[Rfam]
RNA sequence: CGUCACGGGCAGGGGAGCUGGAAAGGCUGGCUGAGAUUUAGACCCUAUGAGGUCUAAGACCCUUUUAACCUGAUCUGGAUAAUGCCAGCGUAGGUAAGCAGUUUUACUCUUUU
Dot-bracket structure: .....(.(..((((..(((((.....)))))......(((((((......)))))))..)))).....((((..((((......))))..))))....).)............
Numbered sequence: 001c002g003u004c005a006c007g008g009g010c011a012g013g014g015g016a017g018c019u020g021g022a023a024a025g026g027c028u029g030g031c032u033g034a035g036a037u038u039u040a041g042a043c044c045c046u047a048u049g050a051g052g053u054c055u056a057a058g059a060c061c062c063u064u065u066u067a068a069c070c071u072g073a074u075c076u077g078g079a080u081a082a083u084g085c086c087a088g089c090g091u092a093g094g095u096a097a098g099c100a101g102u103u104u105u106a107c108u109c110u111u112u113u
Stems, first nucleotide, its partner, number of pairs: 006101001008099001011063004017031005038057007069094004075088004

Notes
Shown here is a 113-nucleotide RNA sequence from Desulfosporosinus fructosivorans, a member of the family "TPP riboswitch aptamer (THI element)". A search with the family's covariance model found it, with a score of 68 bits.